[Rfam]
RNA sequence: UUACUCUGGUUUCCCUUCAAAACGUAUAAAUCUUUCGCCUUUUACUAAAGAUUUCCGUGGAGGGGAACACUCAAAUGAGUCUAAACAUAUUUUUGAAGCCUUGCGCAAUAGUGCAAGGU
Numbered sequence: 001u002u003a004c005u006c007u008g009g010u011u012u013c014c015c016u017u018c019a020a021a022a023c024g025u026a027u028a029a030a031u032c033u034u035u036c037g038c039c040u041u042u043u044a045c046u047a048a049a050g051a052u053u054u055c056c057g058u059g060g061a062g063g064g065g066a067a068c069a070c071u072c073a074a075a076u077g078a079g080u081c082u083a084a085a086c087a088u089a090u091u092u093u094u095g096a097a098g099c100c101u102u103g104c105g106c107a108a109u110a111g112u113g114c115a116a117g118g119u
Base pairs, nucleotide, nucleotide: 003080004079005078006077009068010067011066012065013064014063015062016061017060018059019058028054029053030052031051032050033049034048035047097119099118100117101116102115103114104113
The record is a 119-nucleotide RNA sequence from Vanessa tameamea, which matches "U5 spliceosomal RNA" in Rfam. The base pairs follow the family's consensus structure, which is taken from published work.